[Rfam]
RNA sequence: GAAGCCCGCCAGACCGCCGCUGGCGCAAGGCCCGAAAGGGCGCGCUGGAGGAACGUCCGGACUGCACAGGACGGCGCAGCAGCUAACGGCUGCCCACCGCAAGGUGAGGAUCAGAGCAACAGAGACGAGUCCCCGGGAACCAUCCGCUUUGGCGGCCGGAGCCCGGGGGGUGAAACGGGCAAUCUCUGCGUGCAGCAACACCAAGUAGGCCAGCGUUGACGUGGUUCCGCGGAGCUGGCGGGUAGGUGGCACCGAGCCGUGUGGGCGACCCACGGCCCAGAUAAAUGGCGGUCACGCGGCGGGCAACCGCCGUGCACAGAAUCCGGCGUAUCGGCGGGCUUCACAC
Numbered sequence: 001g002a003a004g005c006c007c008g009c010c011a012g013a014c015c016g017c018c019g020c021u022g023g024c025g026c027a028a029g030g031c032c033c034g035a036a037a038g039g040g041c042g043c044g045c046u047g048g049a050g051g052a053a054c055g056u057c058c059g060g061a062c063u064g065c066a067c068a069g070g071a072c073g074g075c076g077c078a079g080c081a082g083c084u085a086a087c088g089g090c091u092g093c094c095c096a097c098c099g100c101a102a103g104g105u106g107a108g109g110a111u112c113a114g115a116g117c118a119a120c121a122g123a124g125a126c127g128a129g130u131c132c133c134c135g136g137g138a139a140c141c142a143u144c145c146g147c148u149u150u151g152g153c154g155g156c157c158g159g160a161g162c163c164c165g166g167g168g169g170g171u172g173a174a175a176c177g178g179g180c181a182a183u184c185u186c187u188g189c190g191u192g193c194a195g196c197a198a199c200a201c202c203a204a205g206u207a208g209g210c211c212a213g214c215g216u217u218g219a220c221g222u223g224g225u226u227c228c229g230c231g232g233a234g235c236u237g238g239c240g241g242g243u244a245g246g247u248g249g250c251a252c253c254g255a256g257c258c259g260u261g262u263g264g265g266c267g268a269c270c271c272a273c274g275g276c277c278c279a280g281a282u283a284a285a286u287g288g289c290g291g292u293c294a295c296g297c298g299g300c301g302g303g304c305a306a307c308c309g310c311c312g313u314g315c316a317c318a319g320a321a322u323c324c325g326g327c328g329u330a331u332c333g334g335c336g337g338g339c340u341u342c343a344c345a346c
Base pairs, nucleotide, nucleotide: 001342002341003340004339005338006337007336008335009334010333011331012293013292014291015290016289017288018287020048021047022046023045024044025043026042053329054328055327057326058325059324060323061322062195063194064193065192069226071225074191075190076189077188078187079093080092081091082090083089094108095106096105097104098103109186110185114184115183116180117179131169132168133166134165135164136163137162140159141158199248200247201246202245209239210238211237212236213235214234220231221230222229223228256276257275258274259273260272261271263270264269
Shown here is a 346-nucleotide sequence from Serpentinimonas raichei, a member of the family "Bacterial RNase P class A".
The organism belongs to Serpentinimonas, within Bacteria.
Rfam links the family to the GO terms tRNA processing, dimeric ribonuclease P complex and ribonuclease P activity.